The record is a 107-nucleotide RNA from Aspergillus rambellii, which matches "Small nucleolar RNA Z13/snr52" in Rfam. It scores 82 bits against the family's covariance model.
RNA sequence: GCAGACUUAUUAUGAUGAAAUAUUUCGGAUGUAAACUCACAGACCUGUUCCGAAUUGCGCAUUUCAAUCGUGUGGAUAUUUCCGUUGCCUUCCUUCUGAACCAUCUC
Dot-bracket structure: ..(((....................((((...................................................))))...................))).
Taxonomically the source falls in Aspergillus subgen. Nidulantes (Eukaryota, Dikarya, saccharomyceta, Aspergillus). Pairs were carried over by alignment from the consensus structure, which was predicted with PFOLD. The family has 42 seed sequences and 1,203 matches in Rfam 15.1. Rfam classes the family as a C/D-box small nucleolar RNA.